[Rfam]
RNA sequence: CUGUGCUAGGUGGGGAGGUAGCGGUGCCCUGUAACCCACAAUCCGCUAUAGUGGGGCUGAAAUCCUAUCUGAGGUGAAGUGAUUUUAAGGACUGCCGUAAGUAAGCAGUGUUGACGUUUGGGUCCUAUGCAACGGGAACCCGUGAACCCUGUCAGGUCCGGAAGGAAGCAGCAGUAAGCGGUCAUUCCGGUGUGUCGUAGGGCAACCUAGACCGAGCUGUGAACUUACGUACCGCUUAUGAAUCACUUCAUCGAGGGUAGGUGCGCAG
Numbered sequence: 001c002u003g004u005g006c007u008a009g010g011u012g013g014g015g016a017g018g019u020a021g022c023g024g025u026g027c028c029c030u031g032u033a034a035c036c037c038a039c040a041a042u043c044c045g046c047u048a049u050a051g052u053g054g055g056g057c058u059g060a061a062a063u064c065c066u067a068u069c070u071g072a073g074g075u076g077a078a079g080u081g082a083u084u085u086u087a088a089g090g091a092c093u094g095c096c097g098u099a100a101g102u103a104a105g106c107a108g109u110g111u112u113g114a115c116g117u118u119u120g121g122g123u124c125c126u127a128u129g130c131a132a133c134g135g136g137a138a139c140c141c142g143u144g145a146a147c148c149c150u151g152u153c154a155g156g157u158c159c160g161g162a163a164g165g166a167a168g169c170a171g172c173a174g175u176a177a178g179c180g181g182u183c184a185u186u187c188c189g190g191u192g193u194g195u196c197g198u199a200g201g202g203c204a205a206c207c208u209a210g211a212c213c214g215a216g217c218u219g220u221g222a223a224c225u226u227a228c229g230u231a232c233c234g235c236u237u238a239u240g241a242a243u244c245a246c247u248u249c250a251u252c253g254a255g256g257g258u259a260g261g262u263g264c265g266c267a268g
Base pairs, nucleotide, nucleotide: 001268002267003266004265005264006263009058010057011056012030013029014028015027017025019023035055036054037053038052039051064261065260066259067258068257069256070255073252074251075250076249077248080245081244082243083242084241086238087237088236089235093231094230097228098227099226100225101224102223106221107218108217109216116212117211118210119209120208121207122206123205124201125200126199127198128197129196130192131191133190135188136187137186140181141180142179143178149174150173151172152171157166158165159164
RNA: Bacterial large signal recognition particle RNA
Organism: Aquisalibacillus elongatus